[Rfam]
RNA sequence: UAGUGAUUUAGCUCCUUAAGAAUUUGUCUAGCAGGUUUUCUGGUUUUUGCUGGAAAAUUCUC
Numbered sequence: 001u002a003g004u005g006a007u008u009u010a011g012c013u014c015c016u017u018a019a020g021a022a023u024u025u026g027u028c029u030a031g032c033a034g035g036u037u038u039u040c041u042g043g044u045u046u047u048u049g050c051u052g053g054a055a056a057a058u059u060c061u062c
Stems, first nucleotide, its partner, number of pairs: 034059011
U7 small nuclear RNA: a 62-nucleotide sequence from Ictidomys tridecemlineatus. Rfam's curators write: Animal histone pre-mRNAs are spliced by a different mechanism than nuclear pre-mRNAs and self-splicing introns. This processing involves the U7 snRNP, which contains only one RNA species: U7. The 5' end of U7 RNA is thought to base-pair to a conserved spacer element downstream of the cleavage site in histone pre-mRNA. This family contains a number of annotated U7 pseudogenes. The organism belongs to Ictidomys, within Eukaryota. The base pairs follow the family's consensus structure, which was predicted with PFOLD.